[Rfam]
U5 spliceosomal RNA: a 115-nucleotide RNA sequence from Scytalopus superciliaris. Lineage of the source: Eukaryota > Metazoa > Neoaves > Rhinocryptidae > Scytalopus. It is annotated as a spliceosomal small nuclear RNA. Pairs were carried over by alignment from the consensus structure, which is taken from published work. Its family is annotated with spliceosomal tri-snRNP complex assembly and U5 snRNP in the Gene Ontology.

RNA sequence: AUACUCCGGUUUCUCUUCAGACCGCAUAAAUCUUUCGCCUUUUACUAAAGAUUUCCGUGGAGAGGAACAAACACGAGUGCUUAGCAAUUUUUUGAGGCUCCAUUUCCGUGGAGCU
Numbered sequence: 001a002u003a004c005u006c007c008g009g010u011u012u013c014u015c016u017u018c019a020g021a022c023c024g025c026a027u028a029a030a031u032c033u034u035u036c037g038c039c040u041u042u043u044a045c046u047a048a049a050g051a052u053u054u055c056c057g058u059g060g061a062g063a064g065g066a067a068c069a070a071a072c073a074c075g076a077g078u079g080c081u082u083a084g085c086a087a088u089u090u091u092u093u094g095a096g097g098c099u100c101c102a103u104u105u106c107c108g109u110g111g112a113g114c115u
Stems, first nucleotide, its partner, number of pairs: 003078004009068011028054008095115001097114006
The family has 180 seed sequences and 28,527 matches in Rfam 15.1. On this family, see Hinz et al., J Biol Chem 1996: "Domain analysis of human U5 RNA. Cap trimethylation, protein binding, and spliceosome assembly".